RNA sequence: GACAAAGAGGUUCGCAAACUCCCUCUCUAAAAAACUAAGGAGAA
Numbered sequence: 001g002a003c004a005a006a007g008a009g010g011u012u013c014g015c016a017a018a019c020u021c022c023c024u025c026u027c028u029a030a031a032a033a034a035c036u037a038a039g040g041a042g043a044a
Stems, first nucleotide, its partner, number of pairs: 006026005016036001

Shown here is a 44-nucleotide RNA from Paenisporosarcina cavernae, a member of the family "PreQ1 (pre queuosine) riboswitch aptamer". NCBI's taxonomy places the organism under Bacteria, Bacillati, Bacilli, Caryophanaceae, Paenisporosarcina. Pairs were carried over by alignment from the consensus structure. The family has 43 seed sequences and 873 matches in Rfam 15.1. Rfam's curators write: This family is a bacterial riboswitch that binds to the metabolite preQ1, an intermediate in the biosynthesis of the modified nucleoside queuosine from GTP. One example of this riboswitch is located in the leader of the Bacillus subtilis ykvJKLM (queCDEF) operon which encodes four genes necessary for queuosine production. PreQ1 binding to the riboswitch aptamer is thought to induce premature transcription termination within the leader to down-regulate expression of these genes.